[Rfam]
RNA sequence: AACUUGAUAGUAUGGUAGAAAAAAUAUGAAUCUUUCUACUAUAUUAUCUAUAUAUCUAUUAUUGUAAUGUAGAAAGAUACAAGU
Numbered sequence: 001a002a003c004u005u006g007a008u009a010g011u012a013u014g015g016u017a018g019a020a021a022a023a024a025u026a027u028g029a030a031u032c033u034u035u036c037u038a039c040u041a042u043a044u045u046a047u048c049u050a051u052a053u054a055u056c057u058a059u060u061a062u063u064g065u066a067a068u069g070u071a072g073a074a075a076g077a078u079a080c081a082a083g084u
Stems, first nucleotide, its partner, number of pairs: 006048016023031001

Plastid-psbM 3UTR RNA: an 84-nucleotide RNA from Gossypium stocksii. Rfam classes the family as a cis-regulatory element. Plastid psbM is a non-coding RNA (ncRNA) recognised in plastids. Rfam 15.1 lists 627 matches to the family in 337 species.